Rfam assigns this 240-nucleotide RNA sequence from Sporosarcina sp. BI001-red to the family "T-box leader".
It scores 111 bits against the family's covariance model.
Rfam 15.1 lists 19,395 matches to the family in 1,923 species.
The family's RNA type in Rfam is cis-regulatory leader.
Lineage of the source: Bacteria > Bacillati > Bacillota > Caryophanales > Sporosarcina.

RNA sequence: GAGAAAUCAUUGAAAUAAGAAGAGUAGCAUCGCAUUAGACGGAUUCAGAGAGUCGGUGGCUGGUGAGAACCGACCUGUCUUGUGGUGUGAAUGGACUUAUGAGAGCCUAGUGAAAACCAUCUACUGGUUUUUUCAAGGACGCCAUUCCCGCGUUACGGGAAGUGCUGAAUGAACGCACACGAAGUGGGAGUACUUCUGUAUUCCAAUAGAGGUGGCAACGCGGAUUUUUCCGUCCUCUGC
Numbered sequence: 001g002a003g004a005a006a007u008c009a010u011u012g013a014a015a016u017a018a019g020a021a022g023a024g025u026a027g028c029a030u031c032g033c034a035u036u037a038g039a040c041g042g043a044u045u046c047a048g049a050g051a052g053u054c055g056g057u058g059g060c061u062g063g064u065g066a067g068a069a070c071c072g073a074c075c076u077g078u079c080u081u082g083u084g085g086u087g088u089g090a091a092u093g094g095a096c097u098u099a100u101g102a103g104a105g106c107c108u109a110g111u112g113a114a115a116a117c118c119a120u121c122u123a124c125u126g127g128u129u130u131u132u133u134c135a136a137g138g139a140c141g142c143c144a145u146u147c148c149c150g151c152g153u154u155a156c157g158g159g160a161a162g163u164g165c166u167g168a169a170u171g172a173a174c175g176c177a178c179a180c181g182a183a184g185u186g187g188g189a190g191u192a193c194u195u196c197u198g199u200a201u202u203c204c205a206a207u208a209g210a211g212g213u214g215g216c217a218a219c220g221c222g223g224a225u226u227u228u229u230c231c232g233u234c235c236u237c238u239g240c
Base pairs, nucleotide, nucleotide: 007104008103016099017098018097019096027088028087029086030085031084032083040077041076042075052074053073054072055071056070057069106138107137108136110134112132113131114130115129140152141151142150187204188203189202190201191200192199193198209237210236211235212234220233221232222231223230224229